Annotation
The record is a 363-nucleotide RNA sequence from Paraprevotella clara, which matches "Bacterial RNase P class A" in Rfam.
RNA sequence: GCAGUAGGCCGGCUUGCCGCUGCCGGUUUCGGCCGGGAGAGGAAAGUCCGGGCAACACAGGGCAUUCCACUUCUUAACGGGAAGUAAUCCGCGAGGGUUAGAGCGUGCAGAAGAAAAGAACCGCCGUCCGCAAGGACGGUAAGGGUGAGAAGGCGGGGUAAGAGCCCACCGGCCGGAUGGCGACAUCCGGGCCGUGCAUUCUGGAAGUUGAAAGUUCGCGUAUACCGGCGCCACAAGAGAGGGCGGCCCGCCCGAGCCGGAGGGUAGAACGAUAGAGCCUUACGGUGACGCAAGGUCUGGAUAAAUGGCAAGCACUUCGUUUCAUACGAGGUACAGAACCCGGCUUACAGGCCGACUGCUUUU
Numbered sequence: 001g002c003a004g005u006a007g008g009c010c011g012g013c014u015u016g017c018c019g020c021u022g023c024c025g026g027u028u029u030c031g032g033c034c035g036g037g038a039g040a041g042g043a044a045a046g047u048c049c050g051g052g053c054a055a056c057a058c059a060g061g062g063c064a065u066u067c068c069a070c071u072u073c074u075u076a077a078c079g080g081g082a083a084g085u086a087a088u089c090c091g092c093g094a095g096g097g098u099u100a101g102a103g104c105g106u107g108c109a110g111a112a113g114a115a116a117a118g119a120a121c122c123g124c125c126g127u128c129c130g131c132a133a134g135g136a137c138g139g140u141a142a143g144g145g146u147g148a149g150a151a152g153g154c155g156g157g158g159u160a161a162g163a164g165c166c167c168a169c170c171g172g173c174c175g176g177a178u179g180g181c182g183a184c185a186u187c188c189g190g191g192c193c194g195u196g197c198a199u200u201c202u203g204g205a206a207g208u209u210g211a212a213a214g215u216u217c218g219c220g221u222a223u224a225c226c227g228g229c230g231c232c233a234c235a236a237g238a239g240a241g242g243g244c245g246g247c248c249c250g251c252c253c254g255a256g257c258c259g260g261a262g263g264g265u266a267g268a269a270c271g272a273u274a275g276a277g278c279c280u281u282a283c284g285g286u287g288a289c290g291c292a293a294g295g296u297c298u299g300g301a302u303a304a305a306u307g308g309c310a311a312g313c314a315c316u317u318c319g320u321u322u323c324a325u326a327c328g329a330g331g332u333a334c335a336g337a338a339c340c341c342g343g344c345u346u347a348c349a350g351g352c353c354g355a356c357u358g359c360u361u362u363u
Stems, first nucleotide, its partner, number of pairs: 001359005007353004011348001012313007020039002023036005044346003048343005053210004060249004065206005070084005085100001087098004101201002105199005121144002123140007152170002155167003172192001173190007214270004225260005241253004277296005283290002
The source organism's lineage runs through Bacteria, Bacteroidia, Bacteroidales, Prevotellaceae and Paraprevotella clara.
Pairs were carried over by alignment from the consensus structure, which is taken from published work.